Rfam assigns this 320-nucleotide RNA sequence from Colius striatus to the family "7SK RNA".
From the family's description: 7SK was discovered as an abundant small nuclear RNA in the mid-70s but a possible function has only recently been suggested.

RNA sequence: GGACAUGAGGGUGAUCUGGCUGUGACAUCUGUGACCCCACUGAUCACCAGGGUUGAUUUGGAUGAUCUACCUGGCUAGGUGAGGUCCCCUUCCUCCCUCACUGCUCCAUGUGCAUCGCUCCUGAAGCUGUGCACUCGGUCGAAGAGGAUGACUUUCCCCCACAGAAACGUACCAUUCAUCUGUCAAGGGUAUACGGUAGCUGUGCUCCCCUGCUCCAUACAAGCUCAAGCUCAAAUUGUAGGAGAACAUAGGGUAGUCAAGCUUCCAAGGCUGCAGACACAUCCAAGUGAGGCGCUGUAUGGGGCAGUUUGCCAUUCUUU
Number, nucleotide and partner (000 for none) at each position: 001g107002g106003a105004c000005a000006u100007g099008a098009g097010g096011g095012u000013g092014a091015u000016c000017u000018g089019g088020c000021u000022g000023u000024g086025a085026c084027a000028u082029c081030u000031g080032u079033g000034a000035c074036c073037c000038c000039a068040c000041u000042g067043a066044u065045c064046a000047c061048c060049a000050g000051g000052g000053u000054u000055g000056a000057u000058u000059u000060g048061g047062a000063u000064g045065a044066u043067c042068u039069a000070c000071c000072u000073g036074g035075c000076u000077a000078g000079g032080u031081g029082a028083g000084g026085u025086c024087c000088c019089c018090u000091u014092c013093c000094u000095c011096c010097c009098u008099c007100a006101c000102u000103g000104c000105u003106c002107c001108a000109u000110g000111u000112g000113c000114a000115u000116c169117g000118c000119u165120c164121c138122u137123g136124a135125a000126g134127c000128u000129g000130u000131g000132c000133a000134c126135u124136c123137g122138g121139u161140c000141g159142a000143a000144g000145a000146g157147g156148a155149u000150g000151a000152c000153u000154u000155u148156c147157c146158c000159c141160c000161a139162c000163a000164g120165a119166a000167a000168c000169g116170u000171a000172c000173c000174a000175u000176u000177c000178a000179u000180c000181u000182g000183u000184c000185a000186a000187g000188g000189g000190u000191a000192u000193a000194c000195g000196g000197u000198a000199g262200c261201u260202g000203u000204g000205c256206u255207c000208c253209c252210c251211u250212g249213c244214u243215c242216c241217a000218u000219a239220c238221a237222a236223g000224c000225u000226c000227a000228a000229g000230c000231u000232c000233a000234a000235a000236u222237u221238g220239u219240a000241g216242g215243a214244g213245a000246a000247c000248a000249u212250a211251g210252g209253g208254u000255a206256g205257u000258c000259a000260a201261g200262c199263u000264u000265c000266c000267a000268a000269g000270g000271c000272u000273g000274c000275a000276g000277a000278c000279a000280c000281a000282u000283c000284c000285a320286a319287g318288u000289g315290a000291g313292g312293c311294g308295c307296u306297g305298u304299a000300u000301g000302g000303g000304g298305c297306a296307g295308u294309u000310u000311g293312c292313c291314a000315u289316u000317c000318u287319u286320u285
Overview:
A search with the family's covariance model found it, with a score of 254 bits. Its Rfam clan is "7SK clan". It is annotated as a non-coding RNA gene. Pairs were carried over by alignment from the consensus structure, which is taken from published work.